RNA sequence: GCGUCGUUAGCUCAGCUUGGUUAGAGCAUCACCUUGACAUGGUGGGGGUCGGUGGUUCGAGUCCACUACGACGCA
Numbered sequence: 001g002c003g004u005c006g007u008u009a010g011c012u013c014a015g016c017u018u019g020g021u022u023a024g025a026g027c028a029u030c031a032c033c034u035u036g037a038c039a040u041g042g043u044g045g046g047g048g049u050c051g052g053u054g055g056u057u058c059g060a061g062u063c064c065a066c067u068a069c070g071a072c073g074c075a
Stems, first nucleotide, its partner, number of pairs: 001074007010027004029045005051067005